[Rfam]
Shown here is a 53-nucleotide RNA from Gloeocapsa sp. PCC 73106, a member of the family "Plastid-psbl-rps4 3UTR RNA".
Lineage of the source: Bacteria > Bacillati > Cyanobacteriota > Cyanophyceae > Gloeocapsa.
The family's RNA type in Rfam is cis-regulatory element.
Rfam's curators write: Plastid psbl-rps4-psbC is a non-coding RNA (ncRNA) present in plastids. It is compose of two short stem-loops in tandem in the terminal 3 prime untranslate region (3UTR) mostly in psbl and rps4 seed plants genes.
The family has 200 seed sequences and 1,631 matches in Rfam 15.1.
The base pairs follow the family's consensus structure, which was predicted with LocARNA.

RNA sequence: CGGAGAGGGAGGGAUUCGAACCCUCGGUACCAAAUAAUGGUACAACAGAUUAG
Numbered sequence: 001c002g003g004a005g006a007g008g009g010a011g012g013g014a015u016u017c018g019a020a021c022c023c024u025c026g027g028u029a030c031c032a033a034a035u036a037a038u039g040g041u042a043c044a045a046c047a048g049a050u051u052a053g
Base pairs, nucleotide, nucleotide: 009025010024011023012022013021027043028042029041030040031039032038